[Rfam]
Nucleotides: 125
Stems, first nucleotide, its partner, number of pairs: 012037002017032006040119004046115002048111003055105001
Number, partner (000 for none) and nucleotide at each position: 001000g002000a003000a004000g005000g006000a007000a008000a009000g010000c011000g012037c013036c014000a015000a016000a017032c018031c019030g020029g021028u022027c023000g024000u025000g026000a027022g028021g029020c030019u031018g032017g033000g034000a035000c036013g037012g038000a039000a040119a041118a042117c043116c044000a045000a046115g047114g048111g049110u050109c051000u052000u053000a054000g055105u056000a057000g058000g059000c060000a061000g062000a063000c064000g065000a066000g067000c068000a069000a070000a071000a072000g073000g074000g075000a076000u077000u078000g079000c080000u081000c082000g083000c084000g085000a086000a087000a088000c089000a090000a091000g092000g093000a094000a095000u096000a097000g098000u099000g100000c101000c102000u103000g104000g105055a106000u107000a108000a109050g110049a111048u112000a113000g114047c115046c116043g117042g118041u119040u120000a121000c122000c123000c124000u125000u
The record is a 125-nucleotide RNA sequence from Oceanicoccus sagamiensis, which matches "c-di-GMP-I riboswitch aptamer" in Rfam. Pairs were carried over by alignment from the consensus structure, which is taken from published work. GEMM was predicted in a large-scale screen for bacterial structured RNA regulatory elements. The organism belongs to Oceanicoccus, within Bacteria.